U8 small nucleolar RNA: a 136-nucleotide RNA from Tetraodon nigroviridis. The family's consensus secondary structure is taken from published work. The sequence is in the family's curated seed alignment. The organism belongs to Tetraodon, within Eukaryota.
RNA sequence: UCGUCAGUGAGGUACAUCCUUACCUGUUACUUCAGAAAUGAAGUUGCAGAAAAUGAUGAAUGGAGGCUGCAUGAGGAAUGAUUAUAUGUCCUCUGGCAUGUCGGGACCAGCAACUCCCUGCAUGACCCAUUCUGAU
Numbered sequence: 001u002c003g004u005c006a007g008u009g010a011g012g013u014a015c016a017u018c019c020u021u022a023c024c025u026g027u028u029a030c031u032u033c034a035g036a037a038a039u040g041a042a043g044u045u046g047c048a049g050a051a052a053a054u055g056a057u058g059a060a061u062g063g064a065g066g067c068u069g070c071a072u073g074a075g076g077a078a079u080g081a082u083u084a085u086a087u088g089u090c091c092u093c094u095g096g097c098a099u100g101u102c103g104g105g106a107c108c109a110g111c112a113a114c115u116c117c118c119u120g121c122a123u124g125a126c127c128c129a130u131u132c133u134g135a136u
Stems, first nucleotide, its partner, number of pairs: 024049003028046001029044005073093002076090002079084001102120004